Rfam assigns this 82-nucleotide sequence from Salvia splendens to the family "Small nucleolar RNA Z199". The family's RNA type in Rfam is C/D-box small nucleolar RNA. A search with the family's covariance model found it, with a score of 84 bits. snoZ199 is a C/D box small nucleolar RNA, which acts as a methylation guide RNA for sites on 18S and 25S rRNA. Rice snoZ199 is reported to be homologous to Arabidopsis snoR13. Rfam links the family to the GO terms RNA processing and nucleolus.
Nucleotides: 082
Base pairs, nucleotide, nucleotide: 001082002081004080005079006078040050041049042048043047
Number, partner (000 for none) and nucleotide at each position: 001082a002081a003000a004080u005079c006078a007000u008000g009000u010000g011000a012000u013000g014000a015000g016000a017000a018000a019000a020000u021000u022000a023000a024000c025000u026000g027000c028000a029000a030000c031000a032000a033000u034000a035000u036000g037000a038000u039000c040050g041049g042048a043047a044000u045000a046000u047043u048042u049041u050040c051000u052000a053000u054000g055000a056000u057000u058000c059000c060000u061000a062000g063000u064000a065000u066000u067000u068000a069000a070000g071000u072000c073000u074000c075000u076000g077000a078006u079005g080004a081002u082001u